[Rfam]
RNA sequence: GCAGGGGAUAGCCCGACGGGGCAAAAAGCGGGAUUCGUCCUUAUCCGUUUCCCCUGCACCACCAAAGGAC
Number, nucleotide and partner (000 for none) at each position: 001g057002c056003a055004g054005g053006g052007g051008a050009u000010a000011g022012c021013c020014c019015g000016a000017c000018g000019g014020g013021g012022c011023a000024a000025a000026a000027a000028g048029c047030g046031g045032g044033a000034u000035u000036c000037g070038u069039c068040c067041u066042u065043a000044u032045c031046c030047g029048u028049u000050u008051c007052c006053c005054c004055u003056g002057c001058a000059c000060c000061a000062c000063c000064a000065a042066a041067g040068g039069a038070c037